[Rfam]
RNA sequence: GCCUGCAUCCUUGGGGAGUAGCUACCCGCAGUAGUGGGGUUGCCGUCAACAUCCUUGAGCCAUCGGCUCGUGGCGGCAGCAGCAGGUUCGUCCUGCCCAGCGAGACCAAUGAUGCAGCGCUCCGCUUUGUGGCCACGGGUGCAUGCAUCAUGUGGUUUGCUGGCCCUGAGUAAU
Dot-bracket structure: .........................((........)).((((((((((.......(((((.....))))))))))))))).....((.....................................................................................))
Numbered sequence: 001g002c003c004u005g006c007a008u009c010c011u012u013g014g015g016g017a018g019u020a021g022c023u024a025c026c027c028g029c030a031g032u033a034g035u036g037g038g039g040u041u042g043c044c045g046u047c048a049a050c051a052u053c054c055u056u057g058a059g060c061c062a063u064c065g066g067c068u069c070g071u072g073g074c075g076g077c078a079g080c081a082g083c084a085g086g087u088u089c090g091u092c093c094u095g096c097c098c099a100g101c102g103a104g105a106c107c108a109a110u111g112a113u114g115c116a117g118c119g120c121u122c123c124g125c126u127u128u129g130u131g132g133c134c135a136c137g138g139g140u141g142c143a144u145g146c147a148u149c150a151u152g153u154g155g156u157u158u159g160c161u162g163g164c165c166c167u168g169a170g171u172a173a174u
Stems, first nucleotide, its partner, number of pairs: 026037002039080010056070005086174002
The record is a 174-nucleotide RNA sequence from Sphingomonas parapaucimobilis, which matches "Manganese Mn2+ riboswitch aptamer (yybP-ykoY)" in Rfam.
Rfam 15.1 lists 1,126 matches to the family in 1,062 species.
A reference for the family is Barrick et al. (2004), "New RNA motifs suggest an expanded scope for riboswitches in bacterial genetic control", Proc Natl Acad Sci U S A.
The base pairs follow the family's consensus structure.
The source organism's lineage runs through Bacteria, Pseudomonadota, Sphingomonadales, Sphingomonas and Sphingomonas parapaucimobilis.